[Rfam]
RNA sequence: AAACUAGCAAUUAAUCUGCUUAUCUGAAUGUAUUUCUGUAGAAAUUUAGGAAAAGCUGGGAAUAGUGAUGCCAUUUUAUGAGCCUUAAAGGCAGCUGAAGUUAUUAAGGUCCCUAAGAAUGGCUACAAUA
Numbered sequence: 001a002a003a004c005u006a007g008c009a010a011u012u013a014a015u016c017u018g019c020u021u022a023u024c025u026g027a028a029u030g031u032a033u034u035u036c037u038g039u040a041g042a043a044a045u046u047u048a049g050g051a052a053a054a055g056c057u058g059g060g061a062a063u064a065g066u067g068a069u070g071c072c073a074u075u076u077u078a079u080g081a082g083c084c085u086u087a088a089a090g091g092c093a094g095c096u097g098a099a100g101u102u103a104u105u106a107a108g109g110u111c112c113c114u115a116a117g118a119a120u121g122g123c124u125a126c127a128a129u130a
Base pairs, nucleotide, nucleotide: 004059005058006057007056015042016041017040018039019038070123071122072121073120082110083109084108085107086106087105088104090102091101092100

Small nucleolar RNA SNORA33: a 130-nucleotide RNA sequence from Jaculus jaculus. ACA33 is a member of the H/ACA class of snoRNA that guide the sites of modification of uridines to pseudouridines. A search with the family's covariance model found it, with a score of 119 bits. The family's RNA type in Rfam is H/ACA-box small nucleolar RNA.